[Rfam]
RNA sequence: CGCUGGUCCUCCAAAGACCAGCACCGAAGAGGCUUGUCCUUCAUUGCCGGGCGUGCGGGGUCUCCCCAAGCGACGGUUAUCAGAGUCCGAAUGUCACGUUCGGCUGUUCUCGGCGUCUCCAUCGCGCCUUGAAUCGCUGACGCGUCAG
Numbered sequence: 001c002g003c004u005g006g007u008c009c010u011c012c013a014a015a016g017a018c019c020a021g022c023a024c025c026g027a028a029g030a031g032g033c034u035u036g037u038c039c040u041u042c043a044u045u046g047c048c049g050g051g052c053g054u055g056c057g058g059g060g061u062c063u064c065c066c067c068a069a070g071c072g073a074c075g076g077u078u079a080u081c082a083g084a085g086u087c088c089g090a091a092u093g094u095c096a097c098g099u100u101c102g103g104c105u106g107u108u109c110u111c112g113g114c115g116u117c118u119c120c121a122u123c124g125c126g127c128c129u130u131g132a133a134u135c136g137c138u139g140a141c142g143c144g145u146c147a148g
Base pairs, nucleotide, nucleotide: 002022003021004020005019006018007017008016031048032047033046055127056126057125075088076087096110098108100106
Annotation
The record is a 148-nucleotide RNA from Allobosea sp. Root483D1, which matches "speF leader" in Rfam. The source organism's lineage runs through Bacteria, Pseudomonadati, Alphaproteobacteria, Alloboseaceae and Allobosea. Rfam classes the family as a cis-regulatory leader. Gene Ontology term of the family: regulation of gene expression. Rfam describes the family as follows. This family is a putative regulatory RNA structure that is found upstream of the speF gene encoding ornithine decarboxylase in Agrobacterium tumefaciens and other alpha-proteobacteria. The family's consensus secondary structure was predicted with RNAalifold. On this family, see Corbino et al., Genome Biol 2005: "Evidence for a second class of S-adenosylmethionine riboswitches and other regulatory RNA motifs in alpha-proteobacteria".